This 261-nucleotide part of an RNA from Anaerolinea thermolimosa belongs to the Rfam family "Bacterial large subunit ribosomal RNA". The organism belongs to Anaerolinea, within Bacteria. Pairs were carried over by alignment from the consensus structure, which is taken from published work. Gene Ontology terms of the family: ribosome and structural constituent of ribosome.
[Rfam]
RNA sequence: AGGGAUUUGAGAGGAGCUGCCCCUAGUACGAGAGGACCGGGGUGGACAGACCGCUAGUGUGCCAGUUGUCGUGCCAACGGCAGCGCUGGGUAGCUAAGUCUGGCAGAGAUAACCGCUGAAAGCAUCUAAGUGGGAAACUCGCCUCAAGAUAAGAUCCCUGGAUCCUGAAAAGGAGUAAGAUCGCUGGGAGACGACCAGCUAGAUAGGCGGCAUGUGGAAGUGCAGUAAUGCAUGGAGCUAAGCCGUACUAAUGAUCGAGGG
Numbered sequence: 001a002g003g004g005a006u007u008u009g010a011g012a013g014g015a016g017c018u019g020c021c022c023c024u025a026g027u028a029c030g031a032g033a034g035g036a037c038c039g040g041g042g043u044g045g046a047c048a049g050a051c052c053g054c055u056a057g058u059g060u061g062c063c064a065g066u067u068g069u070c071g072u073g074c075c076a077a078c079g080g081c082a083g084c085g086c087u088g089g090g091u092a093g094c095u096a097a098g099u100c101u102g103g104c105a106g107a108g109a110u111a112a113c114c115g116c117u118g119a120a121a122g123c124a125u126c127u128a129a130g131u132g133g134g135a136a137a138c139u140c141g142c143c144u145c146a147a148g149a150u151a152a153g154a155u156c157c158c159u160g161g162a163u164c165c166u167g168a169a170a171a172g173g174a175g176u177a178a179g180a181u182c183g184c185u186g187g188g189a190g191a192c193g194a195c196c197a198g199c200u201a202g203a204u205a206g207g208c209g210g211c212a213u214g215u216g217g218a219a220g221u222g223c224a225g226u227a228a229u230g231c232a233u234g235g236a237g238c239u240a241a242g243c244c245g246u247a248c249u250a251a252u253g254a255u256c257g258a259g260g261g
Base pairs, nucleotide, nucleotide: 001159002158003157004156005155006154007153008152011145012144013143014142017045018044019043020042021041022040023039047102048101049100050099051098055096056095057094062089063088064087065086066085067082068081069080070079071078072077106140107139108138113133114132115131116130117129163174164173165172176258179256180255181254182253183199184198185197186196187195204250205249206248207246208245209244210243211242214238220233221232222231223230224229